[Rfam]
RNA sequence: UUGCUGGCCAACGGCAGGGUCUGAAGGAAGCCAUAGGAAGUCAGAGGUACACAGCGCAAGCGAACCUGAUUCGGCAGGUUGGGUGCGGUAAGCGUGCAAAAUAGCGCAAAGCCCGAUACUCAGUCAGUCCCAACUCUGUGUUUGAGGGUGGCAUCUCUGGCAGGAAACCGUU
Numbered sequence: 001u002u003g004c005u006g007g008c009c010a011a012c013g014g015c016a017g018g019g020u021c022u023g024a025a026g027g028a029a030g031c032c033a034u035a036g037g038a039a040g041u042c043a044g045a046g047g048u049a050c051a052c053a054g055c056g057c058a059a060g061c062g063a064a065c066c067u068g069a070u071u072c073g074g075c076a077g078g079u080u081g082g083g084u085g086c087g088g089u090a091a092g093c094g095u096g097c098a099a100a101a102u103a104g105c106g107c108a109a110a111g112c113c114c115g116a117u118a119c120u121c122a123g124u125c126a127g128u129c130c131c132a133a134c135u136c137u138g139u140g141u142u143u144g145a146g147g148g149u150g151g152c153a154u155c156u157c158u159g160g161c162a163g164g165a166a167a168c169c170g171u172u
Stems, first nucleotide, its partner, number of pairs: 001017006030172001032170001042159006050150003065147003069143001074139003077135007087113003092107004
Notes:
Group II catalytic intron D1-D4-3: a 172-nucleotide RNA sequence from Endozoicomonas montiporae. Group II introns are found in rRNA, tRNA and mRNA of organelles in fungi, plants and protists, and also in mRNA in bacteria. The source organism's lineage runs through Bacteria, Pseudomonadati, Pseudomonadota, Endozoicomonadaceae and Endozoicomonas.